[Rfam]
RNA sequence: UUAUAAGCAAAACUUACUUUUUAGAUUCAUUCAAUAACUGAUGAAUCUGGUCUAUAAUACAGUCCAGAUUCAUCAGUUAUUGAAUGAACCUAAAAAGUAAAUUUUGCUUAUAA
Numbered sequence: 001u002u003a004u005a006a007g008c009a010a011a012a013c014u015u016a017c018u019u020u021u022u023a024g025a026u027u028c029a030u031u032c033a034a035u036a037a038c039u040g041a042u043g044a045a046u047c048u049g050g051u052c053u054a055u056a057a058u059a060c061a062g063u064c065c066a067g068a069u070u071c072a073u074c075a076g077u078u079a080u081u082g083a084a085u086g087a088a089c090c091u092a093a094a095a096a097g098u099a100a101a102u103u104u105u106g107c108u109u110a111u112a113a
Stems, first nucleotide, its partner, number of pairs: 002112011014100011026088018048066003

The family of this 113-nucleotide RNA from Trifolium medium is "MIR2593 microRNA precursor family".